[Rfam]
RNA sequence: CAGUGUUACAGCUUUUAGAAUUUGUCUAGCAGGCUUUCUGGGGUUUUGCUGGAAAGUACAA
Numbered sequence: 001c002a003g004u005g006u007u008a009c010a011g012c013u014u015u016u017a018g019a020a021u022u023u024g025u026c027u028a029g030c031a032g033g034c035u036u037u038c039u040g041g042g043g044u045u046u047u048g049c050u051g052g053a054a055a056g057u058a059c060a061a
Stems, first nucleotide, its partner, number of pairs: 033057009

Background: U7 small nuclear RNA: a 61-nucleotide sequence from Callithrix jacchus. NCBI's taxonomy places the organism under Eukaryota, Metazoa, Theria, Simiiformes, Callithrix. A search with the family's covariance model found it, with a score of 46 bits.